The family of this 61-nucleotide RNA from Pseudomonas paraeruginosa is "Pseudomonas sRNA P36". The literature on the family includes a 2006 paper in Nucleic Acids Res by Livny et al., "Identification of 17 Pseudomonas aeruginosa sRNAs and prediction of sRNA-encoding genes in 10 diverse pathogens using the bioinformatic tool sRNAPredict2". The base pairs follow the family's consensus structure, which was predicted with RNAalifold. The family has 2 seed sequences and 53 matches in Rfam 15.1.
RNA sequence: CAACCUGUUACCGCGGACGUGCCGCGUAACAGAAACCGGGUUCAUCGGUAACGGGAACCCG
Dot-bracket structure: ....(((((((.((((.....)))))))))))....(((((((.(((....))))))))))